Source information:
mir-9198 microRNA precursor family: a 79-nucleotide sequence from Cnephaeus nilssonii. NCBI's taxonomy places the organism under Eukaryota, Deuterostomia, Amniota, Boreoeutheria, Cnephaeus.

RNA sequence: GCCGCCGCUUGCACCUGCUGCCAGCGCCCAGUGCCGGCCCCAAUCACUUGGCGCUGUCAGCUGGUGCGAGCAGCGGCUG
Numbered sequence: 001g002c003c004g005c006c007g008c009u010u011g012c013a014c015c016u017g018c019u020g021c022c023a024g025c026g027c028c029c030a031g032u033g034c035c036g037g038c039c040c041c042a043a044u045c046a047c048u049u050g051g052c053g054c055u056g057u058c059a060g061c062u063g064g065u066g067c068g069a070g071c072a073g074c075g076g077c078u079g
Base pairs, nucleotide, nucleotide: 004074005073007071008070009069010068011067012066013065014064015063017061018060019059020058022056023055024054025053026052027051028050

The family has 6 seed sequences and 64 matches in Rfam 15.1. Its family is annotated with RISC complex and miRNA-mediated post-transcriptional gene silencing in the Gene Ontology.